RNA sequence: GGUAGGAGGAAGGCAAAUGCGAAGCAUUUUUCGGAUGCCUUCCGACGACUUGGCAGGUGCCGCAAAGCGGCGCGUGCCGUUACCUUGA
Numbered sequence: 001g002g003u004a005g006g007a008g009g010a011a012g013g014c015a016a017a018u019g020c021g022a023a024g025c026a027u028u029u030u031u032c033g034g035a036u037g038c039c040u041u042c043c044g045a046c047g048a049c050u051u052g053g054c055a056g057g058u059g060c061c062g063c064a065a066a067g068c069g070g071c072g073c074g075u076g077c078c079g080u081u082a083c084c085u086u087g088a
Stems, first nucleotide, its partner, number of pairs: 008043006016028004052078003059071005